Shown here is an 85-nucleotide RNA sequence from Eucalyptus grandis, a member of the family "Small nucleolar RNA Z122". Taxonomically the source falls in Eucalyptus (Eukaryota, Spermatophyta, Pentapetalae, Myrtales). The match comes from Rfam's covariance-model search (53 bits).
RNA sequence: UUUGGGAUAUGAUGCCACCAUAAUGUAAUUAUCUAAGGCAGCAGCAUUGCUGAGUACAUUUUUUGCACGUCAGUCUGAUCACAAC
Numbered sequence: 001u002u003u004g005g006g007a008u009a010u011g012a013u014g015c016c017a018c019c020a021u022a023a024u025g026u027a028a029u030u031a032u033c034u035a036a037g038g039c040a041g042c043a044g045c046a047u048u049g050c051u052g053a054g055u056a057c058a059u060u061u062u063u064u065g066c067a068c069g070u071c072a073g074u075c076u077g078a079u080c081a082c083a084a085c
Stems, first nucleotide, its partner, number of pairs: 002084003006080002